[Rfam]
RNA sequence: GGCGAUAAACGGUUGACGUAAUAAACCAUUCGGACCCGGGGGCGGUACCCGGCGGCUCCACCAGGUUUCAGCCAUUCUAGUCCCUGACGUGCAUGGCAUGAGACUUGCGAAAAGUACCGGCACGGACUGAAACGUGGCGGGGCCGAAACAGGAUCGACGAGGGUGUAAAGGUCGUACUUUCGCUCGGCAUGGUAUCCGCCGUUAUCGGGCCGAACCUUAUAGUUGCCAAUGACAACUAUGCGGAGGCACGUCUCGCUGCGUAA
Numbered sequence: 001g002g003c004g005a006u007a008a009a010c011g012g013u014u015g016a017c018g019u020a021a022u023a024a025a026c027c028a029u030u031c032g033g034a035c036c037c038g039g040g041g042g043c044g045g046u047a048c049c050c051g052g053c054g055g056c057u058c059c060a061c062c063a064g065g066u067u068u069c070a071g072c073c074a075u076u077c078u079a080g081u082c083c084c085u086g087a088c089g090u091g092c093a094u095g096g097c098a099u100g101a102g103a104c105u106u107g108c109g110a111a112a113a114g115u116a117c118c119g120g121c122a123c124g125g126a127c128u129g130a131a132a133c134g135u136g137g138c139g140g141g142g143c144c145g146a147a148a149c150a151g152g153a154u155c156g157a158c159g160a161g162g163g164u165g166u167a168a169a170g171g172u173c174g175u176a177c178u179u180u181c182g183c184u185c186g187g188c189a190u191g192g193u194a195u196c197c198g199c200c201g202u203u204a205u206c207g208g209g210c211c212g213a214a215c216c217u218u219a220u221a222g223u224u225g226c227c228a229a230u231g232a233c234a235a236c237u238a239u240g241c242g243g244a245g246g247c248a249c250g251u252c253u254c255g256c257u258g259c260g261u262a263a
Base pairs, nucleotide, nucleotide: 001184002183003182004181005180014174015173016172017171026163027162030160031159032158036052037051038050039049040048053145054144055143056142057141058140059139185201186200187199188198

Source information:
A member of the RNA family "permuted transfer-messenger RNA" from Methyloceanibacter methanicus, 263 nucleotides long. It is annotated as a non-coding RNA gene. Rfam describes the family as follows. Bacterial tmRNA, also known as 10Sa RNA or SsrA, is named for its dual tRNA and mRNA-like properties. Its role is to liberate the mRNA from a stalled ribosome. To accomplish this part of the tmRNA is used as a reading frame that ends in a translation stop signal. The broken mRNA is replaced in the ribosome by the tmRNA and translation of the tmRNA leads to addition of a proteolysis tag to the incomplete protein enabling recognition by a protease. Rfam links the family to the GO term RNA catabolic process. The organism belongs to Methyloceanibacter, within Bacteria.